[Rfam]
RNA sequence: CCGUCGGCUUACGCCGACGGCAGAAAGCUGUCGCCGCUUCGCGGCU
Numbered sequence: 001c002c003g004u005c006g007g008c009u010u011a012c013g014c015c016g017a018c019g020g021c022a023g024a025a026a027g028c029u030g031u032c033g034c035c036g037c038u039u040c041g042c043g044g045c046u
Stems, first nucleotide, its partner, number of pairs: 001020008033045005

This 46-nucleotide sequence from Roseiconus nitratireducens belongs to the Rfam family "Acido-Lenti-1 RNA". The match comes from Rfam's covariance-model search (39 bits). By type it is a small RNA. The family's consensus secondary structure is taken from published work.